The record is a 77-nucleotide RNA from Pachycephala philippinensis, which matches "mir-458 microRNA precursor family" in Rfam. For this family Rfam cites "A microRNA catalog of the developing chicken embryo identified by a deep sequencing approach" (Glazov et al., Genome Res, 2008). Lineage of the source: Eukaryota > Deuterostomia > Sarcopterygii > Pachycephalidae > Pachycephala. Rfam links the family to the GO terms RISC complex and miRNA-mediated post-transcriptional gene silencing. It scores 68 bits against the family's covariance model. The family has 12 seed sequences and 1,011 matches in Rfam 15.1.
RNA sequence: GUGCUUAUGGCAGUGCCAUUCCCAGAGCUAUGCCAAGGACACUGUUACAGCUCUGGGAAUGGCACUGCCAUCGGCAC
Dot-bracket structure: .(((..(((.(((.(((((((..((((((.(...............).))))))..))))))).))).)))..))).